[Rfam]
RNA sequence: UUCAGGUGGAGCAGCCACCACUACAAAACGGGCGGAACCGAAAAGCCAGAUGAGUAGGAAACCA
Numbered sequence: 001u002u003c004a005g006g007u008g009g010a011g012c013a014g015c016c017a018c019c020a021c022u023a024c025a026a027a028a029c030g031g032g033c034g035g036a037a038c039c040g041a042a043a044a045g046c047c048a049g050a051u052g053a054g055u056a057g058g059a060a061a062c063c064a
Stems, first nucleotide, its partner, number of pairs: 006021004031047003038058002